[Rfam]
RNA: L31-Firmicutes ribosomal protein leader
Organism: Sporolactobacillus laevolacticus
RNA sequence: CUCUGGUUUGAGAGAAUAAUCAGGGCAAAGGAG
Numbered sequence: 001c002u003c004u005g006g007u008u009u010g011a012g013a014g015a016a017u018a019a020u021c022a023g024g025g026c027a028a029a030g031g032a033g
Stems, first nucleotide, its partner, number of pairs: 001025008
Dot-bracket structure: ((((((((.........))))))))........